The family of this 107-nucleotide RNA sequence from Flavobacterium agri is "Bacteroidales small SRP". Lineage of the source: Bacteria > Bacteroidota > Flavobacteriia > Flavobacteriales > Flavobacterium. On this family, see Ryan et al., Nat Commun 2020: "A high-resolution transcriptome map identifies small RNA regulation of metabolism in the gut microbe Bacteroides thetaiotaomicron". The family's RNA type in Rfam is non-coding RNA gene. Its family is annotated with SRP-dependent cotranslational protein targeting to membrane, signal sequence recognition and signal recognition particle, plasma membrane targeting in the Gene Ontology. Pairs were carried over by alignment from the consensus structure, which is taken from published work.
[Rfam]
RNA sequence: UUUGCAACGGCAAGUCCUGCGCGACCAGCUCCUGUAGAAUCCUCCAGGAUGGGAACAUAGCAAAGGUAUAUGGUUGUAGCGGUGCGACGCAGGUCGCUUGCCAUUUU
Numbered sequence: 001u002u003u004g005c006a007a008c009g010g011c012a013a014g015u016c017c018u019g020c021g022c023g024a025c026c027a028g029c030u031c032c033u034g035u036a037g038a039a040u041c042c043u044c045c046a047g048g049a050u051g052g053g054a055a056c057a058u059a060g061c062a063a064a065g066g067u068a069u070a071u072g073g074u075u076g077u078a079g080c081g082g083u084g085c086g087a088c089g090c091a092g093g094u095c096g097c098u099u100g101c102c103a104u105u106u107u
Stems, first nucleotide, its partner, number of pairs: 009102007017092005022086002024083002